[Rfam]
RNA: Group II catalytic intron D1-D4-5
Organism: Blautia wexlerae
RNA sequence: GAGAACUGAACACACGAACAGUCGAAUGAUGGGGUAACGCCCUGAAAGGCUACUUUAAUACUCCGACUGGCAGGAUUAUGAGUAAACAUAGGUCUGUCAGAAGCUCGGUGAAGUCGGCAGAGAGAUACCGUAACAGAUAGCGCUGUCGAGACAGAGCCAGAGGGUACUGCACAGAAAUAUAUUUUUCUGGUGGAUAAGCAGGAGCUUGGUAAA
Numbered sequence: 001g002a003g004a005a006c007u008g009a010a011c012a013c014a015c016g017a018a019c020a021g022u023c024g025a026a027u028g029a030u031g032g033g034g035u036a037a038c039g040c041c042c043u044g045a046a047a048g049g050c051u052a053c054u055u056u057a058a059u060a061c062u063c064c065g066a067c068u069g070g071c072a073g074g075a076u077u078a079u080g081a082g083u084a085a086a087c088a089u090a091g092g093u094c095u096g097u098c099a100g101a102a103g104c105u106c107g108g109u110g111a112a113g114u115c116g117g118c119a120g121a122g123a124g125a126u127a128c129c130g131u132a133a134c135a136g137a138u139a140g141c142g143c144u145g146u147c148g149a150g151a152c153a154g155a156g157c158c159a160g161a162g163g164g165u166a167c168u169g170c171a172c173a174g175a176a177a178u179a180u181a182u183u184u185u186u187c188u189g190g191u192g193g194a195u196a197a198g199c200a201g202g203a204g205c206u207u208g209g210u211a212a213a
Base pairs, nucleotide, nucleotide: 020051021050022049023048031043032042033041034040054204055203056202063108064107065106066105067100068099069098070097071096072095073094074093076091077090078089079088080087115201117199118198126192127191128190129148130147135144136143152189153188154187155186156185